[Rfam]
RNA sequence: GUGAAAGGCUUUUAGACGUGAGAAAUAAAAGCAUGUAACCUGCUUUUAUUUCUCACAUCUAAAAGCCUUUCACCUUUUGUGAUUCCCCACAAAAAUCCAUUUAUCCAGAAGGGAUAGAG
Numbered sequence: 001g002u003g004a005a006a007g008g009c010u011u012u013u014a015g016a017c018g019u020g021a022g023a024a025a026u027a028a029a030a031g032c033a034u035g036u037a038a039c040c041u042g043c044u045u046u047u048a049u050u051u052c053u054c055a056c057a058u059c060u061a062a063a064a065g066c067c068u069u070u071c072a073c074c075u076u077u078u079g080u081g082a083u084u085c086c087c088c089a090c091a092a093a094a095a096u097c098c099a100u101u102u103a104u105c106c107a108g109a110a111g112g113g114a115u116a117g118a119g
Stems, first nucleotide, its partner, number of pairs: 002072015018056009028046001030044003097117001099115004
Dot-bracket structure: .(((((((((((((((.(((((((((.(.(((.........))).).))))))))).)))))))))))))))........................(.((((.........)))).)..
The family of this 119-nucleotide RNA is "Actinobacteria sRNA Ms_IGR-7". The family has 14 seed sequences and 463 matches in Rfam 15.1. The match comes from Rfam's covariance-model search (47 bits).